[Rfam]
RNA sequence: AAUACAGGUUUCUAGGGUUCCGGUUUAACAUUCGAGAUGUUUUGAGGUUGAACGUCUGGACCGAGAGAAACCGCCAGUUUUCUGGUACACGGCGGGAUAAAAGCCCGGGAGAA
Numbered sequence: 001a002a003u004a005c006a007g008g009u010u011u012c013u014a015g016g017g018u019u020c021c022g023g024u025u026u027a028a029c030a031u032u033c034g035a036g037a038u039g040u041u042u043u044g045a046g047g048u049u050g051a052a053c054g055u056c057u058g059g060a061c062c063g064a065g066a067g068a069a070a071c072c073g074c075c076a077g078u079u080u081u082c083u084g085g086u087a088c089a090c091g092g093c094g095g096g097a098u099a100a101a102a103g104c105c106c107g108g109g110a111g112a113a
Stems, first nucleotide, its partner, number of pairs: 007072006015062002020059002022056001023053006073086005088108001090111001094106003
This 113-nucleotide RNA sequence from Leptolyngbya sp. Heron Island J belongs to the Rfam family "Guanidine-I riboswitch aptamer". Rfam links the family to the GO term regulation of gene expression. A search with the family's covariance model found it, with a score of 84 bits. Rfam 15.1 lists 1,509 matches to the family in 1,281 species. The base pairs follow the family's consensus structure.